RNA: Actinobacteria sRNA Ms_IGR-5
RNA sequence: ACAGCAAGAAGGGAGGUGGUCCGAAGAAUGAGUGAUCUUAGGACUUGCGAGGUGUCCGUCCGCUAGGGCGACACCGACGUUCGCGCGGCGUCAGCCCGACGCGAAUACCAGACGGACACCCGGACCCCGGGCUGCCGGCCUCGUCCGACCGGCCCCUCCGCGGAGGGAGAAGGCCCGGGGUCUGCCCGUG
Numbered sequence: 001a002c003a004g005c006a007a008g009a010a011g012g013g014a015g016g017u018g019g020u021c022c023g024a025a026g027a028a029u030g031a032g033u034g035a036u037c038u039u040a041g042g043a044c045u046u047g048c049g050a051g052g053u054g055u056c057c058g059u060c061c062g063c064u065a066g067g068g069c070g071a072c073a074c075c076g077a078c079g080u081u082c083g084c085g086c087g088g089c090g091u092c093a094g095c096c097c098g099a100c101g102c103g104a105a106u107a108c109c110a111g112a113c114g115g116a117c118a119c120c121c122g123g124a125c126c127c128c129g130g131g132c133u134g135c136c137g138g139c140c141u142c143g144u145c146c147g148a149c150c151g152g153c154c155c156c157u158c159c160g161c162g163g164a165g166g167g168a169g170a171a172g173g174c175c176c177g178g179g180g181u182c183u184g185c186c187c188g189u190g
Stems, first nucleotide, its partner, number of pairs: 015060005061103003064099001066097002070092003074088003121184013135152004140147001